[Rfam]
The record is a 438-nucleotide part of an RNA from Trichormus azollae, which matches "Bacterial large subunit ribosomal RNA" in Rfam. The match comes from Rfam's covariance-model search (2701 bits). The base pairs follow the family's consensus structure, which is taken from published work. NCBI's taxonomy places the organism under Bacteria, Bacillati, Cyanobacteriota, Trichormus, Trichormus azollae.
RNA sequence: CUCCCCGAAAUGUGUUUAGGCGCAGCGGUAAUGAUUAAAUCUGGGGGGUAAAGCACUGUUUCGGUACGGGCUGGGAGACCGGUACCAAAUCGAGACAAACUCAGAAUACCCAGAGAACACAUUGCCAGUGAGACAGUGGGGGAUAAGCUUCAUUGUCAAGAGGGAAACAGCCCAGACCACCAGCUAAGGUCCCCAAAUCAUCACUAAGUGAUAAAGGAGGUGAGAUUGCACAGACAACUAGGAGGUUUGCCUAGAAGCAGCCACCCUUGAAAGAGUGCGUAAUAGCUCACUAGUCAAGCGAUCUUGCGCCGAAAAUGAACGGGGCUAAGUGAUGUACCGAAGCUGUGGACUUAGAUUUACUCUAAGUGGUAGGGGAGCGUUCCGUAGUAGGGAGAAGCAGUAGCGGCAAGCAGCUGUGGACGAAACGGAAGUGAGAAU
Numbered sequence: 001c002u003c004c005c006c007g008a009a010a011u012g013u014g015u016u017u018a019g020g021c022g023c024a025g026c027g028g029u030a031a032u033g034a035u036u037a038a039a040u041c042u043g044g045g046g047g048g049u050a051a052a053g054c055a056c057u058g059u060u061u062c063g064g065u066a067c068g069g070g071c072u073g074g075g076a077g078a079c080c081g082g083u084a085c086c087a088a089a090u091c092g093a094g095a096c097a098a099a100c101u102c103a104g105a106a107u108a109c110c111c112a113g114a115g116a117a118c119a120c121a122u123u124g125c126c127a128g129u130g131a132g133a134c135a136g137u138g139g140g141g142g143a144u145a146a147g148c149u150u151c152a153u154u155g156u157c158a159a160g161a162g163g164g165a166a167a168c169a170g171c172c173c174a175g176a177c178c179a180c181c182a183g184c185u186a187a188g189g190u191c192c193c194c195a196a197a198u199c200a201u202c203a204c205u206a207a208g209u210g211a212u213a214a215a216g217g218a219g220g221u222g223a224g225a226u227u228g229c230a231c232a233g234a235c236a237a238c239u240a241g242g243a244g245g246u247u248u249g250c251c252u253a254g255a256a257g258c259a260g261c262c263a264c265c266c267u268u269g270a271a272a273g274a275g276u277g278c279g280u281a282a283u284a285g286c287u288c289a290c291u292a293g294u295c296a297a298g299c300g301a302u303c304u305u306g307c308g309c310c311g312a313a314a315a316u317g318a319a320c321g322g323g324g325c326u327a328a329g330u331g332a333u334g335u336a337c338c339g340a341a342g343c344u345g346u347g348g349a350c351u352u353a354g355a356u357u358u359a360c361u362c363u364a365a366g367u368g369g370u371a372g373g374g375g376a377g378c379g380u381u382c383c384g385u386a387g388u389a390g391g392g393a394g395a396a397g398c399a400g401u402a403g404c405g406g407c408a409a410g411c412a413g414c415u416g417u418g419g420a421c422g423a424a425a426c427g428g429a430a431g432u433g434a435g436a437a438u
Stems, first nucleotide, its partner, number of pairs: 001377006011024005026128001027126007036119001040114006052101002057097003061093004068086002070083005132157010162173003177348004182344003188338003197335001199334006216310002220307010237294005243267003249261002268272001273288001277286002349367007378433001380430006388423001390421001397417005403411002